This 143-nucleotide RNA sequence from Coregonus sp. 'balchen' belongs to the Rfam family "Small nucleolar RNA SNORD10".
On this family, see Huttenhofer et al., EMBO J 2001: "RNomics: an experimental approach that identifies 201 candidates for novel, small, non-messenger RNAs in mouse".
It scores 69 bits against the family's covariance model.
Lineage of the source: Eukaryota > Chordata > Vertebrata > Euteleosteomorpha > Coregonus.
Rfam classes the family as a C/D-box small nucleolar RNA.
RNA sequence: GUAUAGUGAUGAAAUCCAUGCGUGUCAACUGAUUCUGGAACCCCCUGAGUGUUCUAGUUCCACCAGUCAGCGUUCUGUUGGCUGGUGUGUUCUGAACCUCAGGACUCUGGAACUCAUGAUCAGAUUCCACACUGGCUGAAUAC
Numbered sequence: 001g002u003a004u005a006g007u008g009a010u011g012a013a014a015u016c017c018a019u020g021c022g023u024g025u026c027a028a029c030u031g032a033u034u035c036u037g038g039a040a041c042c043c044c045c046u047g048a049g050u051g052u053u054c055u056a057g058u059u060c061c062a063c064c065a066g067u068c069a070g071c072g073u074u075c076u077g078u079u080g081g082c083u084g085g086u087g088u089g090u091u092c093u094g095a096a097c098c099u100c101a102g103g104a105c106u107c108u109g110g111a112a113c114u115c116a117u118g119a120u121c122a123g124a125u126u127c128c129a130c131a132c133u134g135g136c137u138g139a140a141u142a143c
Base pairs, nucleotide, nucleotide: 001143002142003141004140044103045102046101047100048099049098